[Rfam]
RNA sequence: UGACUGGGACUAUGCAACCGCAACGCCUAAACCUUGUCAGGACCGGAAGGUAGCAGCAAUACGGGAUGCUUGUAGUAGGCGUAGACCCCGGUCACCC
Numbered sequence: 001u002g003a004c005u006g007g008g009a010c011u012a013u014g015c016a017a018c019c020g021c022a023a024c025g026c027c028u029a030a031a032c033c034u035u036g037u038c039a040g041g042a043c044c045g046g047a048a049g050g051u052a053g054c055a056g057c058a059a060u061a062c063g064g065g066a067u068g069c070u071u072g073u074a075g076u077a078g079g080c081g082u083a084g085a086c087c088c089c090g091g092u093c094a095c096c097c
Stems, first nucleotide, its partner, number of pairs: 004091005010084005017076002020073003026065003034059004042051003

This 97-nucleotide RNA sequence from Calothrix sp. C42_A2020_038 belongs to the Rfam family "Bacterial small signal recognition particle RNA". The organism belongs to Calothrix, within Bacteria. A search with the family's covariance model found it, with a score of 58 bits. Rfam's curators write: The signal recognition particle (SRP) is a universally conserved ribonucleoprotein involved in the co-translational targeting of proteins to membranes. The family's RNA type in Rfam is non-coding RNA gene.